FMN riboswitch aptamer (RFN element): a 141-nucleotide RNA from Ectobacillus ponti.
Its family is annotated with FMN binding in the Gene Ontology.
RNA sequence: AAUAUCCUUCGGGGUCGGGUGCAAAUCCCAACCGGCGGUGAUGAAGCAAUUCUAAGUCCGUGACCCGCGUUUCCUUUGGAAGCCGGUGGAUCUAGUGAGAAUCUAGAGCCGACAGUAUAGUCUGGAUGGGAGAAGGAUGUU
Numbered sequence: 001a002a003u004a005u006c007c008u009u010c011g012g013g014g015u016c017g018g019g020u021g022c023a024a025a026u027c028c029c030a031a032c033c034g035g036c037g038g039u040g041a042u043g044a045a046g047c048a049a050u051u052c053u054a055a056g057u058c059c060g061u062g063a064c065c066c067g068c069g070u071u072u073c074c075u076u077u078g079g080a081a082g083c084c085g086g087u088g089g090a091u092c093u094a095g096u097g098a099g100a101a102u103c104u105a106g107a108g109c110c111g112a113c114a115g116u117a118u119a120g121u122c123u124g125g126a127u128g129g130g131a132g133a134a135g136g137a138u139g140u141u
Stems, first nucleotide, its partner, number of pairs: 003139008017029003031121002033111002035061004056109002065086002091107005113124003